[Rfam]
RNA sequence: GUUGGGUAUGGUGAUAUGUACCCUACCAAGAACCUUGGGUAUGUGGUCGGAACGUUCUGUGCACUUGCCGGACUUCUAAUGAUAGGUUUUACAGUACCAAUAAUUGUUAAUCAU
Numbered sequence: 001g002u003u004g005g006g007u008a009u010g011g012u013g014a015u016a017u018g019u020a021c022c023c024u025a026c027c028a029a030g031a032a033c034c035u036u037g038g039g040u041a042u043g044u045g046g047u048c049g050g051a052a053c054g055u056u057c058u059g060u061g062c063a064c065u066u067g068c069c070g071g072a073c074u075u076c077u078a079a080u081g082a083u084a085g086g087u088u089u090u091a092c093a094g095u096a097c098c099a100a101u102a103a104u105u106g107u108u109a110a111u112c113a114u
Base pairs, nucleotide, nucleotide: 001114002113004111008107009106010105011104014101015100018097019096020095021094037077038076039075050062
RNA: Potassium channel RNA editing signal